Shown here is a 130-nucleotide RNA, a member of the family "Streptomyces RNA 5676". Rfam describes the family as follows. Identified by deep sequencing of transcriptome at the end of exponential growth phase. Appears longer on northern blot than sequencing transcript. On this family, see Vockenhuber et al., RNA Biol 2011: "Deep sequencing-based identification of small non-coding RNAs in Streptomyces coelicolor". It is annotated as a small RNA. It scores 111 bits against the family's covariance model.
RNA sequence: AGAUGAGAGAAACACAUCGCCCGCGGGAGACCUCGGGCGAUUCCGGGCCGGAGCUUCCCCGGCGCCGUCCCGGGCGUGCCUCUGUGCACGGCACCGGAGCCUCCGGCUCCGGGACUCCUCACCGAUCGGA
Numbered sequence: 001a002g003a004u005g006a007g008a009g010a011a012a013c014a015c016a017u018c019g020c021c022c023g024c025g026g027g028a029g030a031c032c033u034c035g036g037g038c039g040a041u042u043c044c045g046g047g048c049c050g051g052a053g054c055u056u057c058c059c060c061g062g063c064g065c066c067g068u069c070c071c072g073g074g075c076g077u078g079c080c081u082c083u084g085u086g087c088a089c090g091g092c093a094c095c096g097g098a099g100c101c102u103c104c105g106g107c108u109c110c111g112g113g114a115c116u117c118c119u120c121a122c123c124g125a126u127c128g129g130a
Stems, first nucleotide, its partner, number of pairs: 004121004009117002017040007025032002042074006049067003053063002076089004094112008122129002